[Rfam]
RNA: azaaromatic riboswitch aptamer (yjdF RNA)
Organism: Clostridium butyricum
RNA sequence: AUAAAAGGAGAUAAAAACACUAUUCUGUUGGUAGUCAGAAUCUAUUAUUUUAAUAGCAGUAACCUGCCCUCCUGGGUUGUCCGUUCUCUGGAAUUUUUUA
Numbered sequence: 001a002u003a004a005a006a007g008g009a010g011a012u013a014a015a016a017a018c019a020c021u022a023u024u025c026u027g028u029u030g031g032u033a034g035u036c037a038g039a040a041u042c043u044a045u046u047a048u049u050u051u052a053a054u055a056g057c058a059g060u061a062a063c064c065u066g067c068c069c070u071c072c073u074g075g076g077u078u079g080u081c082c083g084u085u086c087u088c089u090g091g092a093a094u095u096u097u098u099u100a
Base pairs, nucleotide, nucleotide: 007089008088009087010086011085022041023040024039025038026037027036042056043055044054045053046052047051066077067076068075069074